[Rfam]
RNA sequence: UUUGUAAAGAUGAAUAUAGCUCAUAUAAGUUUCAUAAUAUGGUUGAAACGUUUCUACUAAAUGACCUGAAAUCAUUUGGCUAUGAGCGAAAGUGUACCUAGG
Dot-bracket structure: ..................(((((((...((((((.........))))))........(((((((.......)))))))..)))))))...............
Numbered sequence: 001u002u003u004g005u006a007a008a009g010a011u012g013a014a015u016a017u018a019g020c021u022c023a024u025a026u027a028a029g030u031u032u033c034a035u036a037a038u039a040u041g042g043u044u045g046a047a048a049c050g051u052u053u054c055u056a057c058u059a060a061a062u063g064a065c066c067u068g069a070a071a072u073c074a075u076u077u078g079g080c081u082a083u084g085a086g087c088g089a090a091a092g093u094g095u096a097c098c099u100a101g102g
Stems, first nucleotide, its partner, number of pairs: 019087007029049006058078007
Annotation: The family of this 102-nucleotide sequence from Paratissierella segnis is "Purine riboswitch aptamer". Gene Ontology term of the family: purine nucleobase biosynthetic process. About the family: Riboswitches are metabolite binding domains within certain messenger RNAs that serve as precision sensors for their corresponding targets. Allosteric rearrangement of mRNA structure is mediated by ligand binding, and this results in modulation of gene expression. A class of riboswitches that selectively recognises guanine and becomes saturated at concentrations as low as 5 nM. In Bacillus subtilis, this mRNA motif is located on at least five separate transcriptional units that together encode 17 genes that are mostly involved in purine transport and purine nucleotide biosynthesis. It has also been shown that some members of this family are specific for adenine instead. Hence this family are termed purine riboswitches. NCBI's taxonomy places the organism under Bacteria, Bacillota, Tissierellia, Tissierellales, Paratissierella.